[Rfam]
RNA sequence: GUCUUCUCACUGAGCUCCUUUCUGUCGCUCUGUGGCAGUUAUGGAUUCGCAUGAGAAGAGACCAUUCACAGAGCUAGCAUUAUUCUGCCUCCUGUCUUCAGAGCUAUAUGCUGCUGUUUUGUGAGACAUUU
Numbered sequence: 001g002u003c004u005u006c007u008c009a010c011u012g013a014g015c016u017c018c019u020u021u022c023u024g025u026c027g028c029u030c031u032g033u034g035g036c037a038g039u040u041a042u043g044g045a046u047u048c049g050c051a052u053g054a055g056a057a058g059a060g061a062c063c064a065u066u067c068a069c070a071g072a073g074c075u076a077g078c079a080u081u082a083u084u085c086u087g088c089c090u091c092c093u094g095u096c097u098u099c100a101g102a103g104c105u106a107u108a109u110g111c112u113g114c115u116g117u118u119u120u121g122u123g124a125g126a127c128a129u130u131u
Stems, first nucleotide, its partner, number of pairs: 003058006014050002016045003022038005066124006089103002092101003